Rfam assigns this 70-nucleotide sequence from Zosterops hypoxanthus to the family "tRNA".
Taxonomically the source falls in Zosterops (Eukaryota, Eumetazoa, Vertebrata, Neognathae).
RNA sequence: CAGAAAGUAGUUUAGUUUAAAAUGCCAGCUUUGGGAGUUGGUGAGGAAGGUUCGAUUCCUUUCUUUCUGA
Numbered sequence: 001c002a003g004a005a006a007g008u009a010g011u012u013u014a015g016u017u018u019a020a021a022a023u024g025c026c027a028g029c030u031u032u033g034g035g036a037g038u039u040g041g042u043g044a045g046g047a048a049g050g051u052u053c054g055a056u057u058c059c060u061u062u063c064u065u066u067c068u069g070a
Stems, first nucleotide, its partner, number of pairs: 001069007010023004025041005046062005